[Rfam]
RNA sequence: UGCAUGUAUGCCAAUGAUGCAUCAAUUGCACGUAUUAUCAGAAUAAAUGAUGAUGAUUAUAUAAUUGUCACUACCACUGAGGCAUACAUAUA
Numbered sequence: 001u002g003c004a005u006g007u008a009u010g011c012c013a014a015u016g017a018u019g020c021a022u023c024a025a026u027u028g029c030a031c032g033u034a035u036u037a038u039c040a041g042a043a044u045a046a047a048u049g050a051u052g053a054u055g056a057u058u059a060u061a062u063a064a065u066u067g068u069c070a071c072u073a074c075c076a077c078u079g080a081g082g083c084a085u086a087c088a089u090a091u092a
Base pairs, nucleotide, nucleotide: 001092002091004089005088006087007086008085009084010083011082012081

A member of the RNA family "Small nucleolar RNA SNORD70" from Coptis chinensis, 92 nucleotides long. snoRNA HBII-234 belongs to the C/D family of snoRNAs. The source organism's lineage runs through Eukaryota, Streptophyta, Streptophytina, Embryophyta and Coptis. On this family, see Huttenhofer et al., EMBO J 2001: "RNomics: an experimental approach that identifies 201 candidates for novel, small, non-messenger RNAs in mouse". Gene Ontology terms of the family: nucleolus and RNA processing.